[Rfam]
RNA sequence: GGGCAGUGACACCCAGUCGUUAUGUCACCCUAAAGCUGGACUUAGAGUCACAGUCAUGGAAAUUCUGGGCAGUAGCAGAGACUUGCAGUCACUAACCAAUAGGAUGCCGUUGGAUGUUGCUACCCAACUGACUCA
Numbered sequence: 001g002g003g004c005a006g007u008g009a010c011a012c013c014c015a016g017u018c019g020u021u022a023u024g025u026c027a028c029c030c031u032a033a034a035g036c037u038g039g040a041c042u043u044a045g046a047g048u049c050a051c052a053g054u055c056a057u058g059g060a061a062a063u064u065c066u067g068g069g070c071a072g073u074a075g076c077a078g079a080g081a082c083u084u085g086c087a088g089u090c091a092c093u094a095a096c097c098a099a100u101a102g103g104a105u106g107c108c109g110u111u112g113g114a115u116g117u118u119g120c121u122a123c124c125c126a127a128c129u130g131a132c133u134c135a
Stems, first nucleotide, its partner, number of pairs: 006028005036053003039049004064079004084135002088132003096103002109128005
Shown here is a 135-nucleotide sequence from Polynucleobacter asymbioticus, a member of the family "Polynucleobacter-1 RNA". Taxonomically the source falls in Polynucleobacter asymbioticus (Bacteria, Pseudomonadati, Burkholderiales, Polynucleobacter). Rfam's curators put it in the seed alignment.